[Rfam]
Nucleotides: 062
Base pairs, nucleotide, nucleotide: 001060002059003058004057005056006055007054010051012049013048014047015046016045017044019042020041021040022039
Number, partner (000 for none) and nucleotide at each position: 001060u002059c003058u004057u005056c006055a007054u008000u009000c010051u011000c012049c013048a014047c015046a016045c017044u018000c019042u020041c021040u022039c023000g024000c025000c026000c027000g028000a029000u030000c031000g032000a033000g034000u035000g036000g037000c038000c039022g040021a041020g042019a043000c044017a045016g046015u047014g048013u049012g050000g051010a052000a053000a054007a055006u056005g057004a058003a059002g060001a061000g062000a